[Rfam]
RNA sequence: CUCGUCUGUCUGUUGGGCUGGAGGCAGGGCCUUUGUGAAGGCGAGUUGCGCUAGGGUCGCCUCUGGGCCCUUCCUCCAGCCCAGAGGCAGCUUCA
Numbered sequence: 001c002u003c004g005u006c007u008g009u010c011u012g013u014u015g016g017g018c019u020g021g022a023g024g025c026a027g028g029g030c031c032u033u034u035g036u037g038a039a040g041g042c043g044a045g046u047u048g049c050g051c052u053a054g055g056g057u058c059g060c061c062u063c064u065g066g067g068c069c070c071u072u073c074c075u076c077c078a079g080c081c082c083a084g085a086g087g088c089a090g091c092u093u094c095a
Base pairs, nucleotide, nucleotide: 004092006090007089008088009087010086011085015082016081017080018079019078020077021076022075023074024073026071027070028069029068030067031066032065039062040061041060042059043058044057
Shown here is a 95-nucleotide RNA from Diceros bicornis, a member of the family "mir-326 microRNA precursor family". Taxonomically the source falls in Diceros bicornis (Eukaryota, Opisthokonta, Eumetazoa, Rhinocerotidae). It scores 105 bits against the family's covariance model. Rfam links the family to the GO terms RISC complex and miRNA-mediated post-transcriptional gene silencing. The family's consensus secondary structure was predicted with RNAalifold. On this family, see Chiang et al., Genes Dev 2010: "Mammalian microRNAs: experimental evaluation of novel and previously annotated genes".